[Rfam]
RNA sequence: UAAUAUAGCAAUUGACUGCCGAAGACAGCAGGUGCCGUAAGGCAUAAGGAGAAAACGCCUGCCGAGGAAGUAUGCGAAUUCAAUUUCGGAUUUGUAAACCUCUGUGUCUUUGGAUACAGAGGUUUUUAUUUUGGCAG
Dot-bracket structure: ...........................(((((((((....))).............))))))....................................((((((((((....))))))))))...............
Rfam assigns this 137-nucleotide RNA from Mediterraneibacter gnavus to the family "Ribosomal protein L10 leader". This family is a putative r-protein leader autoregulatory structure found in B. subtilis and other low-GC Gram-positive bacteria. It is located in the 5' untranslated regions of mRNAs encoding ribosomal proteins L10 and L12 (rplJ-rplL). NCBI's taxonomy places the organism under Bacteria, Clostridia, Lachnospirales, Mediterraneibacter, Mediterraneibacter gnavus. The sequence is in the family's curated seed alignment.